[Rfam]
RNA sequence: UGUGCCAAUGAUGAUAGAACAGACAGGGACAUCAGCCACUCCAAUUAAAUCGGAGAAUGUUGACUUGUCUAAAUGGGAAUCUCUCUGAUGCGCA
Numbered sequence: 001u002g003u004g005c006c007a008a009u010g011a012u013g014a015u016a017g018a019a020c021a022g023a024c025a026g027g028g029a030c031a032u033c034a035g036c037c038a039c040u041c042c043a044a045u046u047a048a049a050u051c052g053g054a055g056a057a058u059g060u061u062g063a064c065u066u067g068u069c070u071a072a073a074u075g076g077g078a079a080u081c082u083c084u085c086u087g088a089u090g091c092g093c094a
Base pairs, nucleotide, nucleotide: 002093003092004091005090